Rfam assigns this 57-nucleotide sequence from Synechococcus sp. CBW1004 to the family "Cyanobacterial functional RNA 1". Lineage of the source: Bacteria > Bacillati > Synechococcales > Synechococcaceae > Synechococcus. Rfam classes the family as a small RNA. The literature on the family includes a 2007 paper in BMC Genomics by Voss et al., "A motif-based search in bacterial genomes identifies the ortholog of the small RNA Yfr1 in all lineages of cyanobacteria".

RNA sequence: GUGGGGGCUACGGCUCGCACACUCCUCACACCCUCCGGCCCGGAGAUCCCGGGCUUU
Numbered sequence: 001g002u003g004g005g006g007g008c009u010a011c012g013g014c015u016c017g018c019a020c021a022c023u024c025c026u027c028a029c030a031c032c033c034u035c036c037g038g039c040c041c042g043g044a045g046a047u048c049c050c051g052g053g054c055u056u057u
Stems, first nucleotide, its partner, number of pairs: 001020003005016004037055007